Description
drz-agam-1 ribozyme: a 90-nucleotide RNA from Olea europaea. The base pairs follow the family's consensus structure, which is taken from published work. On this family, see Webb et al., Science 2009: "Widespread occurrence of self-cleaving ribozymes".
[Rfam]
RNA sequence: GGCUCACGAAGUCCUAUGUCCACCUCCUCGCGGUGUGAGCCGGACGUUAUACCCCAGCAUGCUGUAUGGUAUAAUGAAUGACGGACAAGG
Dot-bracket structure: .............((.((((((((.......)))..........(((((((((..............)))))))))......))))).))